A member of the RNA family "MIR1520 microRNA precursor family" from Glycine soja, 126 nucleotides long.
Taxonomically the source falls in Glycine subgen. Soja (Eukaryota, Streptophytina, Magnoliopsida, Pentapetalae).
The family's consensus secondary structure was predicted with RNAalifold.
It scores 124 bits against the family's covariance model.
RNA sequence: UUCUUAUUGGAUGAUGACGGUCACGUGUCAUGUUCUGAUUAAUAUUGGUCAAUAAAAACAACAAUUCAUUUCAUCUUUCAUGGAGUUGACAUUCAAUCAGAACAUGACACGUGACAAUCAUCAUCC
Numbered sequence: 001u002u003c004u005u006a007u008u009g010g011a012u013g014a015u016g017a018c019g020g021u022c023a024c025g026u027g028u029c030a031u032g033u034u035c036u037g038a039u040u041a042a043u044a045u046u047g048g049u050c051a052a053u054a055a056a057a058a059c060a061a062c063a064a065u066u067c068a069u070u071u072c073a074u075c076u077u078u079c080a081u082g083g084a085g086u087u088g089a090c091a092u093u094c095a096a097u098c099a100g101a102a103c104a105u106g107a108c109a110c111g112u113g114a115c116a117a118u119c120a121u122c123a124u125c126c
Stems, first nucleotide, its partner, number of pairs: 020115004025110002029106003033102004038097003